TPP riboswitch aptamer (THI element): a 90-nucleotide sequence from Leuconostoc lactis. The family's consensus secondary structure is taken from published work. Rfam links the family to the GO term thiamine pyrophosphate binding.
[Rfam]
RNA sequence: UAACACGAUCUGGGGUGCCAAGUUGGCUGAGAAAUACCCAUUGAACCUGAUCGCGGUAAUGCGCGCGAAGGGAGAUUCAUUGAUGAAGAC
Number, nucleotide and partner (000 for none) at each position: 001u000002a000003a000004c000005a000006c000007g077008a076009u075010c074011u040012g039013g038014g037015g000016u034017g027018c026019c025020a024021a000022g000023u000024u020025g019026g018027c017028u000029g000030a000031g000032a000033a000034a016035u000036a000037c014038c013039c012040a011041u000042u000043g000044a000045a000046c071047c070048u069049g000050a000051u000052c065053g064054c063055g062056g000057u000058a000059a000060u000061g000062c055063g054064c053065g052066c000067g000068a000069a048070g047071g046072g000073a000074g010075a009076u008077u007078c000079a000080u000081u000082g000083a000084u000085g000086a000087a000088g000089a000090c000